[Rfam]
RNA sequence: GAACUUUCUUAGUGAUAAGAAACUGAGUUAAGAGAAGUCAGCAGACGUCAUAGUAUCAACAAAUGUUGAGAAGGAC
Numbered sequence: 001g002a003a004c005u006u007u008c009u010u011a012g013u014g015a016u017a018a019g020a021a022a023c024u025g026a027g028u029u030a031a032g033a034g035a036a037g038u039c040a041g042c043a044g045a046c047g048u049c050a051u052a053g054u055a056u057c058a059a060c061a062a063a064u065g066u067u068g069a070g071a072a073g074g075a076c
Base pairs, nucleotide, nucleotide: 002024005022006021007020008019009018010017011016037046038045039044047076048075049074056069057068058067059066060065
A member of the RNA family "Group II catalytic intron D1-D4-1", 76 nucleotides long.